The family of this 115-nucleotide sequence from Trifolium medium is "MIR2593 microRNA precursor family".
The match comes from Rfam's covariance-model search (98 bits).
Gene Ontology terms of the family: miRNA-mediated post-transcriptional gene silencing and RISC complex.
Taxonomically the source falls in Trifolium (Eukaryota, Streptophyta, Pentapetalae, rosids).
RNA sequence: UUAUAAGCAAAAUUUCACUUUUCAGAUUCAUUGAACAACUGAUGUAUGUGGUCUAUAAUGUAGACCAGAUACAUAGAUUAUUUAAUGAAUCUGAAAAGGAGAUUUUUGCUUAUAC
Numbered sequence: 001u002u003a004u005a006a007g008c009a010a011a012a013u014u015u016c017a018c019u020u021u022u023c024a025g026a027u028u029c030a031u032u033g034a035a036c037a038a039c040u041g042a043u044g045u046a047u048g049u050g051g052u053c054u055a056u057a058a059u060g061u062a063g064a065c066c067a068g069a070u071a072c073a074u075a076g077a078u079u080a081u082u083u084a085a086u087g088a089a090u091c092u093g094a095a096a097a098g099g100a101g102a103u104u105u106u107u108g109c110u111u112a113u114a115c
Base pairs, nucleotide, nucleotide: 002114003113004112005111006110007109009106010105011104012103014101015100016099018098019097020096021095022094023093024092025091027089028088029087030086031085032084033083034082035081037079038078040076042074043073044072049067050066051065052064